[Rfam]
Record summary:
The family of this 181-nucleotide RNA from Acaryochloris thomasi is "Antisense RNA which regulates isiA expression".
RNA sequence: GAUAACCAAAAAUUGUUGCUGGAUUGAGGGUUGGGGAGACUAAGCGCACAUCCUGAAGAGCCGGAUCAUAGAGACCGCCCCAGGUAGUGGCUUUCAUGACAAACAGCAGACAGGCGAUGCCGAGGAAUAGAAGAUGGUGCCCUAGAAUCAUGCCGAGCUGAGCCUUAGGAUCGCUAUCCCA
Numbered sequence: 001g002a003u004a005a006c007c008a009a010a011a012a013u014u015g016u017u018g019c020u021g022g023a024u025u026g027a028g029g030g031u032u033g034g035g036g037a038g039a040c041u042a043a044g045c046g047c048a049c050a051u052c053c054u055g056a057a058g059a060g061c062c063g064g065a066u067c068a069u070a071g072a073g074a075c076c077g078c079c080c081c082a083g084g085u086a087g088u089g090g091c092u093u094u095c096a097u098g099a100c101a102a103a104c105a106g107c108a109g110a111c112a113g114g115c116g117a118u119g120c121c122g123a124g125g126a127a128u129a130g131a132a133g134a135u136g137g138u139g140c141c142c143u144a145g146a147a148u149c150a151u152g153c154c155g156a157g158c159u160g161a162g163c164c165u166u167a168g169g170a171u172c173g174c175u176a177u178c179c180c181a
Stems, first nucleotide, its partner, number of pairs: 133178003136172003141169005
The organism belongs to Acaryochloris thomasi, within Bacteria.